[Rfam]
RNA: Small nucleolar RNA SNORA5
RNA sequence: UGCAGCCCUGUCAAAUUCGGUCCCUGCCUCCUCCGUGGUGGGGACCGGCCAACCGGCUGCCACAGCAACUUCCGUAGUCCAUGAGCCCCAUGUCCCCUUCCCGUGGGAUGCCAGGGGGUAAAAUCAUGCCACGAACACGU
Numbered sequence: 001u002g003c004a005g006c007c008c009u010g011u012c013a014a015a016u017u018c019g020g021u022c023c024c025u026g027c028c029u030c031c032u033c034c035g036u037g038g039u040g041g042g043g044a045c046c047g048g049c050c051a052a053c054c055g056g057c058u059g060c061c062a063c064a065g066c067a068a069c070u071u072c073c074g075u076a077g078u079c080c081a082u083g084a085g086c087c088c089c090a091u092g093u094c095c096c097c098u099u100c101c102c103g104u105g106g107g108a109u110g111c112c113a114g115g116g117g118g119u120a121a122a123a124u125c126a127u128g129c130c131a132c133g134a135a136c137a138c139g140u
Stems, first nucleotide, its partner, number of pairs: 002060004018047011074132002077129002086118003091115001